[Rfam]
RNA sequence: UGCAGGAGGAAACUAAAUGAACGAAGUUCAUUUCUAAAAUGUUUCCGACGAGUUGCCGCUGACCGAAGGGAGGGGGCGGUACAUAGU
Dot-bracket structure: .......((((((..((((((.....))))))........))))))........(((.((..((...))..)).)))..........
Shown here is an 87-nucleotide RNA from Eubacterium sp. CAG:161, a member of the family "GA-cis RNA". Lineage of the source: Bacteria > Bacillota > Eubacteriales > Eubacteriaceae > Eubacterium. It scores 88 bits against the family's covariance model. The family's consensus secondary structure is taken from published work.